Rfam assigns this 68-nucleotide RNA sequence from Gossypium barbadense to the family "Small nucleolar RNA SNORD77". For this family Rfam cites "Guide RNAs with 5' caps and novel box C/D snoRNA-like domains for modification of snRNAs in metazoa" (Tycowski et al., Curr Biol, 2004). The family's RNA type in Rfam is C/D-box small nucleolar RNA. Rfam's curators write: U77 belongs to the C/D family of snoRNAs. Gene Ontology terms of the family: RNA processing and nucleolus. The family is grouped with related families in Rfam's "SNORD77 clan".
RNA sequence: AUAAACAAUUGUUUGCAAAGUUCAGCAAAUGUGAGAUUGGAAAACUUCUAGGACAUAUAGUUUUAUCU
Numbered sequence: 001a002u003a004a005a006c007a008a009u010u011g012u013u014u015g016c017a018a019a020g021u022u023c024a025g026c027a028a029a030u031g032u033g034a035g036a037u038u039g040g041a042a043a044a045c046u047u048c049u050a051g052g053a054c055a056u057a058u059a060g061u062u063u064u065a066u067c068u
Stems, first nucleotide, its partner, number of pairs: 001066004006039005013028004044056001047053002